[Rfam]
RNA sequence: AAUCUAAAUCAGCGAGUAAAAUCACUGACAUGAUGAAGAAGUCGGAUAAGGCAUAAAAAACCCAGCAUAGGGUUGCCUUAUCCGCCACAUCGGGAAACUGGUGUGAGAGACUUCGGUCUCU
Numbered sequence: 001a002a003u004c005u006a007a008a009u010c011a012g013c014g015a016g017u018a019a020a021a022u023c024a025c026u027g028a029c030a031u032g033a034u035g036a037a038g039a040a041g042u043c044g045g046a047u048a049a050g051g052c053a054u055a056a057a058a059a060a061c062c063c064a065g066c067a068u069a070g071g072g073u074u075g076c077c078u079u080a081u082c083c084g085c086c087a088c089a090u091c092g093g094g095a096a097a098c099u100g101g102u103g104u105g106a107g108a109g110a111c112u113u114c115g116g117u118c119u120c121u
Stems, first nucleotide, its partner, number of pairs: 002034003009028004014023002043084011060073004086105008106121006
RNA: LOOT RNA